[Rfam]
RNA sequence: CAAUAACUUCGGGGUCAGGUGAAAGUCCUAACCGGCGGUGAUGCAGUCAUGAUAAGCCCGCGACCUACUAAUGUAGCUGAUCUGGUGAGAAUCCAGAGCCGACCGUAAAGUCGGGUAUAAAGAAGUUAAAG
Numbered sequence: 001c002a003a004u005a006a007c008u009u010c011g012g013g014g015u016c017a018g019g020u021g022a023a024a025g026u027c028c029u030a031a032c033c034g035g036c037g038g039u040g041a042u043g044c045a046g047u048c049a050u051g052a053u054a055a056g057c058c059c060g061c062g063a064c065c066u067a068c069u070a071a072u073g074u075a076g077c078u079g080a081u082c083u084g085g086u087g088a089g090a091a092u093c094c095a096g097a098g099c100c101g102a103c104c105g106u107a108a109a110g111u112c113g114g115g116u117a118u119a120a121a122g123a124a125g126u127u128a129a130a131g
Base pairs, nucleotide, nucleotide: 004128005127006126007125008124009123010122017029018028019027031111032110033101034100035061036060037059038058056099057098065076066075081097082096083095084094085093103114104113105112
Dot-bracket structure: ...(((((((......(((.......))).[[((((((.................[[))))...((........))....(((((.......)))))]])).(((....]]))).......)))))))...
This 131-nucleotide sequence from Leuconostocaceae bacterium R-53105 belongs to the Rfam family "FMN riboswitch aptamer (RFN element)".
The RFN element is a highly conserved domain that is found frequently in the 5'-untranslated regions of prokaryotic mRNAs that encode for flavin mononucleotide (FMN) biosynthesis and transport proteins.
Taxonomically the source falls in Lactobacillaceae (Bacteria, Bacillati, Bacilli, Lactobacillales).
The literature on the family includes a 2002 paper in Nucleic Acids Res by Vitreschak et al., "Regulation of riboflavin biosynthesis and transport genes in bacteria by transcriptional and translational attenuation".